[Rfam]
Nucleotides: 126
Base pairs, nucleotide, nucleotide: 002042003041004040005039007038008037009035010034011033012032013031015029016028065120066119067118070115071114072113077108078107079106080105081104083102084101085100
Number, partner (000 for none) and nucleotide at each position: 001000a002042g003041g004040c005039a006000a007038c008037c009035u010034c011033c012032a013031u014000c015029u016028u017000u018000u019000u020000c021000a022000u023000u024000g025000u026000g027000u028016g029015a030000a031013a032012u033011g034010g035009g036000u037008g038007g039005u040004g041003u042002u043000a044000a045000u046000c047000u048000g049000c050000u051000c052000a053000u054000a055000c056000a057000a058000a059000a060000a061000u062000u063000c064000a065120c066119u067118u068000u069000u070115g071114c072113u073000c074000u075000u076000c077108a078107g079106a080105c081104u082000u083102g084101c085100u086000g087000a088000c089000c090000c091000u092000u093000u094000u095000u096000a097000u098000g099000a100085a101084g102083u103000u104081g105080g106079u107078c108077u109000a110000g111000u112000a113072a114071g115070c116000u117000u118067a119066a120065g121000g122000a123000c124000a125000a126000u